[Rfam]
About this RNA
Xanthine riboswitch aptamer (NMT1 RNA): a 65-nucleotide RNA sequence. On this family, see Yu and Breaker, RNA 2020: "A bacterial riboswitch class senses xanthine and uric acid to regulate genes associated with purine oxidation". Gene Ontology term of the family: purine nucleobase binding. Pairs were carried over by alignment from the consensus structure, which is taken from published work.

RNA sequence: CAGAAGAGUAGAAGCGGUCAGAGGAACGCGCGAUACCGGCAACACCUCGGGACAUUGCUCUUGAA
Numbered sequence: 001c002a003g004a005a006g007a008g009u010a011g012a013a014g015c016g017g018u019c020a021g022a023g024g025a026a027c028g029c030g031c032g033a034u035a036c037c038g039g040c041a042a043c044a045c046c047u048c049g050g051g052a053c054a055u056u057g058c059u060c061u062u063g064a065a
Stems, first nucleotide, its partner, number of pairs: 005061006015050001018052002021048004